[Rfam]
Rfam assigns this 157-nucleotide sequence from Periconia macrospinosa to the family "Small nucleolar RNA snR80". Clan: SNORA28 clan.
RNA sequence: GCAACUUUACCAACACUCUGGCCCUUACCUCCAGUCCCUUUGGGCUAGACCAUGGUAUAGGCCUAUUUUGGUGUAAAGGAGAACAAACGACCAUUUACUCACCGCGGUACUCUAGCUUUUGGCGUGGGUACAGUGGUCCAUCAACCUUGGUCGAUAU
Number, nucleotide and partner (000 for none) at each position: 001g000002c000003a000004a000005c000006u000007u076008u075009a074010c000011c000012a000013a000014c000015a000016c000017u000018c000019u000020g063021g062022c061023c060024c000025u000026u057027a056028c055029c054030u000031c000032c000033a000034g000035u000036c000037c000038c000039u000040u000041u000042g000043g000044g000045c000046u000047a000048g000049a000050c000051c000052a000053u000054g029055g028056u027057a026058u000059a000060g023061g022062c021063c020064u000065a000066u000067u000068u000069u000070g000071g000072u000073g000074u009075a008076a007077a000078g000079g000080a000081g000082a000083a000084c000085a000086a000087a000088c000089g152090a151091c150092c149093a000094u000095u000096u000097a000098c000099u000100c000101a000102c136103c135104g134105c133106g000107g131108u130109a129110c000111u128112c127113u126114a000115g000116c000117u000118u000119u000120u000121g000122g000123c000124g000125u000126g113127g112128g111129u109130a108131c107132a000133g105134u104135g103136g102137u000138c000139c000140a000141u000142c000143a000144a000145c000146c000147u000148u000149g092150g091151u090152c089153g000154a000155u000156a000157u000
About this RNA: Its family is annotated with RNA processing and nucleolus in the Gene Ontology. A search with the family's covariance model found it, with a score of 49 bits.